Rfam assigns this 138-nucleotide sequence from Podiceps cristatus to the family "Small nucleolar RNA SNORA64/SNORA10 family".
Rfam 15.1 lists 703 matches to the family in 311 species.
Rfam's curators write: This family belongs to the H/ACA class of small nucleolar RNAs (snoRNAs) which act as guides in the the modification of uridines to pseudouridines. This family includes the human snoRNAs U64 and ACA10 and mouse MBI-29.
Its Rfam clan is "SNORA64 clan".
On this family, see Narayanan et al., EMBO J 1999: "Nucleolar localization signals of box H/ACA small nucleolar RNAs".
By type it is an H/ACA-box small nucleolar RNA.

RNA sequence: AAUCUCCCAAUCUGCGCGAUUGCACUUGUUUGAAGUAGUGUAAUUGUCGUAACUGGAGAGAGAAAGAAACUUGAGUUUUGUGUGUACAUCAGAGAGACCCUGCUGUGGUCUCCCUGUUCCUCCCUAAAUUCUACAUCG
Numbered sequence: 001a002a003u004c005u006c007c008c009a010a011u012c013u014g015c016g017c018g019a020u021u022g023c024a025c026u027u028g029u030u031u032g033a034a035g036u037a038g039u040g041u042a043a044u045u046g047u048c049g050u051a052a053c054u055g056g057a058g059a060g061a062g063a064a065a066g067a068a069a070c071u072u073g074a075g076u077u078u079u080g081u082g083u084g085u086a087c088a089u090c091a092g093a094g095a096g097a098c099c100c101u102g103c104u105g106u107g108g109u110c111u112c113c114c115u116g117u118u119c120c121u122c123c124c125u126a127a128a129u130u131c132u133a134c135a136u137c138g
Stems, first nucleotide, its partner, number of pairs: 003067003008062001011059003018045008076128003080124001082121001084119001091115002095111005